[Rfam]
RNA sequence: CAGGGGAGGGGCUGGGUUUAUGUUGGGAGAACUUUUACGGUGAACCAGGAGGUUCUCCCAACGUAAGCCCAGCCCCUCCCCUC
Numbered sequence: 001c002a003g004g005g006g007a008g009g010g011g012c013u014g015g016g017u018u019u020a021u022g023u024u025g026g027g028a029g030a031a032c033u034u035u036u037a038c039g040g041u042g043a044a045c046c047a048g049g050a051g052g053u054u055c056u057c058c059c060a061a062c063g064u065a066a067g068c069c070c071a072g073c074c075c076c077u078c079c080c081c082u083c
Stems, first nucleotide, its partner, number of pairs: 002082035039046002
RNA: mir-629 microRNA precursor family
Organism: Gorilla gorilla